The family of this 65-nucleotide RNA is "ASdes TB sRNA".
[Rfam]
RNA sequence: CGAACGACGGGGUGCGCUCCGCGAGCGACCGGACGCUGUCGCGCACCGCGGCGGUGUCGUAGCUC
Numbered sequence: 001c002g003a004a005c006g007a008c009g010g011g012g013u014g015c016g017c018u019c020c021g022c023g024a025g026c027g028a029c030c031g032g033a034c035g036c037u038g039u040c041g042c043g044c045a046c047c048g049c050g051g052c053g054g055u056g057u058c059g060u061a062g063c064u065c
Stems, first nucleotide, its partner, number of pairs: 004060003008056002011030003015027004034053002039051005

Rfam classes the family as a small RNA. The family's consensus secondary structure is taken from published work.